[Rfam]
RNA sequence: AUGGAAUUGAUGAUUCUUUCCCCAGCUUAUCGACAAUGAUUAUACUGUGCGCUUUUUGUAUUUUCUCUUUUUUAAAGAGAAUGUCAAGCCAGAAAUCUGAUCCAU
Number, nucleotide and partner (000 for none) at each position: 001a105002u104003g103004g102005a101006a000007u000008u000009g000010a000011u000012g000013a000014u000015u000016c000017u000018u000019u000020c000021c000022c000023c000024a000025g000026c000027u000028u000029a000030u000031c000032g000033a000034c000035a000036a000037u000038g000039a000040u000041u000042a000043u000044a000045c000046u000047g000048u000049g000050c000051g000052c000053u000054u000055u000056u000057u000058g000059u000060a000061u000062u000063u000064u000065c000066u000067c000068u000069u000070u000071u000072u000073u000074a000075a000076a000077g000078a000079g000080a000081a000082u000083g000084u000085c000086a000087a000088g000089c000090c000091a000092g000093a000094a000095a000096u000097c000098u000099g000100a000101u005102c004103c003104a002105u001
RNA: Small nucleolar RNA Z103